[Rfam]
RNA: malK-I RNA
Organism: Firmicutes bacterium ASF500
RNA sequence: UUCAAGGGCCGGGAGGCUACUCCAUCACUAUAGUCCCCGGUACCAAACAAAAGGAGGAAAAAAACCGCUGCGGCUUGCGGUGCGGCAGUGUGGAGACCUGUCGUAAAGCUCCCGGGGACUUCGCUGCUCCGGGACGAGAUGGAGAAGGCGGUGGCCGCUCCAUCAAAGCCGAAUGCUAUGGCA
Numbered sequence: 001u002u003c004a005a006g007g008g009c010c011g012g013g014a015g016g017c018u019a020c021u022c023c024a025u026c027a028c029u030a031u032a033g034u035c036c037c038c039g040g041u042a043c044c045a046a047a048c049a050a051a052a053g054g055a056g057g058a059a060a061a062a063a064a065c066c067g068c069u070g071c072g073g074c075u076u077g078c079g080g081u082g083c084g085g086c087a088g089u090g091u092g093g094a095g096a097c098c099u100g101u102c103g104u105a106a107a108g109c110u111c112c113c114g115g116g117g118a119c120u121u122c123g124c125u126g127c128u129c130c131g132g133g134a135c136g137a138g139a140u141g142g143a144g145a146a147g148g149c150g151g152u153g154g155c156c157g158c159u160c161c162a163u164c165a166a167a168g169c170c171g172a173a174u175g176c177u178a179u180g181g182c183a
Base pairs, nucleotide, nucleotide: 006043008041009040010039011038012037013036016034017033018032019031065080066079067078068077071171072170073169074168075167076166081105082104083103084102085101086100087099088098090097091096108135110133111132112131114130115129116128138164139163140162141161142160143159144158147156148155149154